[Rfam]
RNA sequence: GGGGACGCUACGGAUUCGACAGGGGUAGUUCGAGCUUGGGUGGCGAGUCGAGGGGAUCGGCCUCGUUAAAACGUCAACGCCUAUAACUGGCAAAACUAACAACAACUUAGCUUUCGCAGCUUAAUACUGCAUAGCUGUUCGCCCCUCCAUCGCCUAUGUGGUAGGGUAGCGGACUCACUCUAAGUAGGCUACGCCGGAGUCCACCGCCUGAGGACGAAGGAAGAGAACAACCAGGCUAGCUGGCCGGGCGCCUGUCGAUAGGCAGAUGGAUUUAGCGAAACGCGAAUAUGUCGACUACACUCGUAGAAGCUUAAGUGCCGAUAUCUUUGGACGUGGGUUCGACUCCCACCGUCUCCACCA
Numbered sequence: 001g002g003g004g005a006c007g008c009u010a011c012g013g014a015u016u017c018g019a020c021a022g023g024g025g026u027a028g029u030u031c032g033a034g035c036u037u038g039g040g041u042g043g044c045g046a047g048u049c050g051a052g053g054g055g056a057u058c059g060g061c062c063u064c065g066u067u068a069a070a071a072c073g074u075c076a077a078c079g080c081c082u083a084u085a086a087c088u089g090g091c092a093a094a095a096c097u098a099a100c101a102a103c104a105a106c107u108u109a110g111c112u113u114u115c116g117c118a119g120c121u122u123a124a125u126a127c128u129g130c131a132u133a134g135c136u137g138u139u140c141g142c143c144c145c146u147c148c149a150u151c152g153c154c155u156a157u158g159u160g161g162u163a164g165g166g167u168a169g170c171g172g173a174c175u176c177a178c179u180c181u182a183a184g185u186a187g188g189c190u191a192c193g194c195c196g197g198a199g200u201c202c203a204c205c206g207c208c209u210g211a212g213g214a215c216g217a218a219g220g221a222a223g224a225g226a227a228c229a230a231c232c233a234g235g236c237u238a239g240c241u242g243g244c245c246g247g248g249c250g251c252c253u254g255u256c257g258a259u260a261g262g263c264a265g266a267u268g269g270a271u272u273u274a275g276c277g278a279a280a281c282g283c284g285a286a287u288a289u290g291u292c293g294a295c296u297a298c299a300c301u302c303g304u305a306g307a308a309g310c311u312u313a314a315g316u317g318c319c320g321a322u323a324u325c326u327u328u329g330g331a332c333g334u335g336g337g338u339u340c341g342a343c344u345c346c347c348a349c350c351g352u353c354u355c356c357a358c359c360a
Base pairs, nucleotide, nucleotide: 001356002355003354004353005352006351007350020329021328022327023326024325025324026323027322029320032318034316035315036314037313038312039311040310041309044303045302046301047300048299049065050064051063052062053061055075056074057073112134113133116130117129118128119127137174138173139172140171141170142169143166144165145164146163147161148160149159150158152189153188154187155186156185157184194220195219199215200214201213202212206237208235209234239276240275241274242273243272244269245268246267250263251262252261254295255294256293257292258289259288260287333349334348335347336346337345
Overview:
The family of this 360-nucleotide RNA from Pseudoneobacillus rhizosphaerae is "transfer-messenger RNA". Pairs were carried over by alignment from the consensus structure, which is taken from published work. By type it is a non-coding RNA gene. Rfam describes the family as follows. Bacterial tmRNA, also known as 10Sa RNA or SsrA, is named for its dual tRNA and mRNA-like properties. Its role is to liberate the mRNA from a stalled ribosome. To accomplish this part of the tmRNA is used as a reading frame that ends in a translation stop signal. The broken mRNA is replaced in the ribosome by the tmRNA and translation of the tmRNA leads to addition of a proteolysis tag to the incomplete protein enabling recognition by a protease. Recently a number of permuted tmRNA genes have been found encoded in two parts. tmRNAs have been identified in eubacteria and some chloroplasts but are absent from archaeal and eukaryote nuclear genomes.